Rfam assigns this 85-nucleotide sequence from Varanus komodoensis to the family "mir-301 microRNA precursor family". The match comes from Rfam's covariance-model search (66 bits). Pairs were carried over by alignment from the consensus structure, which was predicted with WAR. Rfam links the family to the GO terms miRNA-mediated post-transcriptional gene silencing and RISC complex. Taxonomically the source falls in Varanus (Eukaryota, Gnathostomata, Paleoanguimorpha, Varanoidea).
Nucleotides: 085
Stems, first nucleotide, its partner, number of pairs: 002082003007077002012072003016068004023058008
Number, partner (000 for none) and nucleotide at each position: 001000u002082g003081g004080g005000a006000c007077c008076g009000c010000u011000g012072g013071c014070u015000c016068u017067g018066a019065c020000a021000g022000u023058g024057u025056u026055g027054c028053a029052c030051u031000a032000c033000u034000a035000u036000c037000u038000a039000c040000a041000c042000a043000a044000a045000u046000u047000a048000a049000g050000c051030a052029g053028u054027g055026c056025a057024a058023u059000a060000a061000u062000a063000u064000u065019g066018u067017c068016a069000a070014a071013g072012c073000a074000u075000u076008u077007g078000g079000u080004u081003c082002c083000a084000g085000u